[Rfam]
RNA: tRNA
Organism: Erysipelothrix larvae
RNA sequence: CGGGAUGUAGCACAGCUUGGUAGUGCACUUGAUUUGGGAUCAAGGGGUCGCAGGUUCAAAUCCUGUCAUCCCGA
Numbered sequence: 001c002g003g004g005a006u007g008u009a010g011c012a013c014a015g016c017u018u019g020g021u022a023g024u025g026c027a028c029u030u031g032a033u034u035u036g037g038g039a040u041c042a043a044g045g046g047g048u049c050g051c052a053g054g055u056u057c058a059a060a061u062c063c064u065g066u067c068a069u070c071c072c073g074a
Stems, first nucleotide, its partner, number of pairs: 001073007010026004028044005050066005